[Rfam]
Nucleotides: 125
Base pairs, nucleotide, nucleotide: 004094005093006092007091008090009089010088011087012086015083016082017113018112019111020110021109068079069078070077071076102120104118105117106116
Number, partner (000 for none) and nucleotide at each position: 001000u002000a003000c004094g005093u006092c007091u008090c009089a010088c011087g012086u013000g014000a015083c016082u017113g018112g019111c020110g021109a022000a023000a024000a025000g026000u027000c028000g029000g030000g031000c032000g033000a034000u035000c036000u037000c038000c039000a040000u041000g042000a043000g044000u045000g046000g047000c048000g049000a050000u051000c052000g053000g054000c055000a056000a057000a058000c059000c060000g061000g062000c063000g064000a065000a066000a067000g068079g069078u070077g071076g072000g073000c074000a075000c076071c077070c078069a079068c080000c081000g082016g083015g084000a085000a086012a087011c088010g089009u090008g091007a092006g093005a094004u095000u096000u097000u098000u099000c100000a101000u102120c103000a104118g105117c106116c107000g108000u109021u110020c111019g112018c113017c114000u115000g116106g117105g118104u119000a120102g121000c122000c123000a124000c125000u